[Rfam]
RNA sequence: UGUAGCCAUCGGGCCGUCCGCUUAGCGGACGGCGCCGAUUCCGG
Dot-bracket structure: ...........(((..(((((...)))))....)))........